[Rfam]
RNA sequence: GCCAAAUGAUGUUUAUAUUUUGGGAAGUGAGCACUUUGCGCAAUGAUGACCUUAAUCUAUCACCCUUGACUGAUGGCU
Numbered sequence: 001g002c003c004a005a006a007u008g009a010u011g012u013u014u015a016u017a018u019u020u021u022g023g024g025a026a027g028u029g030a031g032c033a034c035u036u037u038g039c040g041c042a043a044u045g046a047u048g049a050c051c052u053u054a055a056u057c058u059a060u061c062a063c064c065c066u067u068g069a070c071u072g073a074u075g076g077c078u
Base pairs, nucleotide, nucleotide: 001077002076003075004074031041032040034038

The record is a 78-nucleotide RNA sequence from Lynx pardinus, which matches "Small nucleolar RNA SNORD83" in Rfam.
Rfam classes the family as a C/D-box small nucleolar RNA.
Rfam links the family to the GO terms RNA processing and nucleolus.
The organism belongs to Lynx, within Eukaryota.